[Rfam]
RNA sequence: AUAAAUAUUUUUAAGUUUAGAAAUUUAGCCACGGGACCCCCAACUGCAUGUAAGAAUAACCUGGAGACUCUGACAGGACAGGUCAGCAUAAUACCUGUAGCUACCACUCAACUUUCCUAUAAUU
Numbered sequence: 001a002u003a004a005a006u007a008u009u010u011u012u013a014a015g016u017u018u019a020g021a022a023a024u025u026u027a028g029c030c031a032c033g034g035g036a037c038c039c040c041c042a043a044c045u046g047c048a049u050g051u052a053a054g055a056a057u058a059a060c061c062u063g064g065a066g067a068c069u070c071u072g073a074c075a076g077g078a079c080a081g082g083u084c085a086g087c088a089u090a091a092u093a094c095c096u097g098u099a100g101c102u103a104c105c106a107c108u109c110a111a112c113u114u115u116c117c118u119a120u121a122a123u124u
Base pairs, nucleotide, nucleotide: 011034012033017028018027019026020025063117064116065115066114067113076104079097080096081095082094
Overview
The family of this 124-nucleotide sequence from Erinaceus europaeus is "Small nucleolar RNA SNORA44". The family's consensus secondary structure was predicted with PFOLD. It scores 83 bits against the family's covariance model. The family has 27 seed sequences and 1,056 matches in Rfam 15.1. ACA44 is a member of the H/ACA class of snoRNA that guide the sites of modification of uridines to pseudouridines. The literature on the family includes a 2001 paper in EMBO J by Huttenhofer et al., "RNomics: an experimental approach that identifies 201 candidates for novel, small, non-messenger RNAs in mouse".